The record is a 74-nucleotide RNA from Pneumocystis murina, which matches "tRNA" in Rfam. NCBI's taxonomy places the organism under Eukaryota, Opisthokonta, Taphrinomycotina, Pneumocystomycetes, Pneumocystis murina. It is annotated as a transfer RNA. A search with the family's covariance model found it, with a score of 59 bits. Its family is annotated with triplet codon-amino acid adaptor activity in the Gene Ontology. The family's consensus secondary structure is taken from published work.

RNA sequence: GGGUUGGUAGCUCAGUUGGGAUGAGCGUUGCACUGAAGAUGCAAAGGUCCCGUGUUCGAUCCACGGUCGACCCA
Numbered sequence: 001g002g003g004u005u006g007g008u009a010g011c012u013c014a015g016u017u018g019g020g021a022u023g024a025g026c027g028u029u030g031c032a033c034u035g036a037a038g039a040u041g042c043a044a045a046g047g048u049c050c051c052g053u054g055u056u057c058g059a060u061c062c063a064c065g066g067u068c069g070a071c072c073c074a
Base pairs, nucleotide, nucleotide: 001073002072003071004070005069006068007067010026011025012024013023028044029043030042031041032040050066051065052064053063054062